[Rfam]
RNA sequence: GGUUACAAGUGUGAGGCUACAGCAGAAGUGCUCGUGAUGCAGCCUCUCAGAUUCCAACAAACCUGUGAAUUCUGUU
Numbered sequence: 001g002g003u004u005a006c007a008a009g010u011g012u013g014a015g016g017c018u019a020c021a022g023c024a025g026a027a028g029u030g031c032u033c034g035u036g037a038u039g040c041a042g043c044c045u046c047u048c049a050g051a052u053u054c055c056a057a058c059a060a061a062c063c064u065g066u067g068a069a070u071u072c073u074g075u076u
Base pairs, nucleotide, nucleotide: 013046014045015044016043017042018041021076022075023074024073025072026071027070028040029039030038048065049064050063052061053060

This 76-nucleotide sequence from Crocodylus porosus belongs to the Rfam family "Mammalian CPEB3 ribozyme". Rfam links the family to the GO term RNA nuclease activity. The base pairs follow the family's consensus structure, which is taken from published work.